Shown here is a 78-nucleotide sequence from Lepisosteus oculatus, a member of the family "mir-458 microRNA precursor family". Pairs were carried over by alignment from the consensus structure, which was predicted with RNAalifold. It scores 87 bits against the family's covariance model. The organism belongs to Lepisosteus, within Eukaryota. For this family Rfam cites "A microRNA catalog of the developing chicken embryo identified by a deep sequencing approach" (Glazov et al., Genome Res, 2008). The family has 12 seed sequences and 1,011 matches in Rfam 15.1.
[Rfam]
RNA sequence: GUGCAGGUGGCAGCGCCAUUUUCAGAGGUAUAAGCAUGCUGAUUGUCAUAGCUCUUUGAAUGGUACUGCCGCACGCAC
Numbered sequence: 001g002u003g004c005a006g007g008u009g010g011c012a013g014c015g016c017c018a019u020u021u022u023c024a025g026a027g028g029u030a031u032a033a034g035c036a037u038g039c040u041g042a043u044u045g046u047c048a049u050a051g052c053u054c055u056u057u058g059a060a061u062g063g064u065a066c067u068g069c070c071g072c073a074c075g076c077a078c
Base pairs, nucleotide, nucleotide: 002077003076004075007072008071009070011068012067013066015064016063017062018061019060020059021058024055025054026053027052029050030049031048
Dot-bracket structure: .(((..(((.(((.(((((((..((((.(((................))).))))..))))))).))).)))..))).